[Rfam]
RNA sequence: AGGUCCAAAGAGAGAGGCAGGGUCUGCUCCGCAACCUCCAUGGCAGCUGUUGAUCAGCCAUUGCCUCUCUCUUUAUCUCCA
Numbered sequence: 001a002g003g004u005c006c007a008a009a010g011a012g013a014g015a016g017g018c019a020g021g022g023u024c025u026g027c028u029c030c031g032c033a034a035c036c037u038c039c040a041u042g043g044c045a046g047c048u049g050u051u052g053a054u055c056a057g058c059c060a061u062u063g064c065c066u067c068u069c070u071c072u073u074u075a076u077c078u079c080c081a
Stems, first nucleotide, its partner, number of pairs: 008073013022059001024057003028053002032049002035046001
A member of the RNA family "mir-574 microRNA precursor family" from Pipistrellus kuhlii, 81 nucleotides long.
The family is grouped with related families in Rfam's "mir-574 microRNA precursor clan".
Rfam links the family to the GO terms RISC complex and miRNA-mediated post-transcriptional gene silencing.
A search with the family's covariance model found it, with a score of 88 bits.
Rfam 15.1 lists 4,084 matches to the family in 7 species.
A reference for the family is Lui et al. (2007), "Patterns of known and novel small RNAs in human cervical cancer", Cancer Res.